[Rfam]
RNA sequence: CGAGACAAAGCCAAACCCUCCGUGAGGCGGGGACGGAAAGCCUAGGGUCUCUUUCUCUUAGAGACAGCCGGGUUGCCUGGG
Dot-bracket structure: (.((......((...(((.((....)).)))..[))..((((..(((((.............))).])).))))..))..)
RNA: c-di-GMP-I-GGC riboswitch aptamer